[Rfam]
RNA: Bacterial small signal recognition particle RNA
Organism: Gloeocapsa sp. PCC 73106
RNA sequence: GACCUGGACCCAUGCGAUGAUAACGCCCAAACCUUGUCAGGACCGGAAGGUAGCAGCAAUACGGGAUGCUUAUGAUAGGCGCGGAAUCCGGGUCUUU
Numbered sequence: 001g002a003c004c005u006g007g008a009c010c011c012a013u014g015c016g017a018u019g020a021u022a023a024c025g026c027c028c029a030a031a032c033c034u035u036g037u038c039a040g041g042a043c044c045g046g047a048a049g050g051u052a053g054c055a056g057c058a059a060u061a062c063g064g065g066a067u068g069c070u071u072a073u074g075a076u077a078g079g080c081g082c083g084g085a086a087u088c089c090g091g092g093u094c095u096u097u
Stems, first nucleotide, its partner, number of pairs: 004091005010084002013081002017076002020073003026065003034059004042051003